[Rfam]
RNA sequence: UGAGUUGUAGCCUAGUGGAAAGGCGUUUGGCCGUUAACUAAAAGACAGCAAGAUCAAUACUUGCCAGCUCAG
Numbered sequence: 001u002g003a004g005u006u007g008u009a010g011c012c013u014a015g016u017g018g019a020a021a022g023g024c025g026u027u028u029g030g031c032c033g034u035u036a037a038c039u040a041a042a043a044g045a046c047a048g049c050a051a052g053a054u055c056a057a058u059a060c061u062u063g064c065c066a067g068c069u070c071a072g
Base pairs, nucleotide, nucleotide: 001071002070003069004068005067006066007065010024011023012022013021026042027041028040029039030038048064049063050062051061052060
RNA: tRNA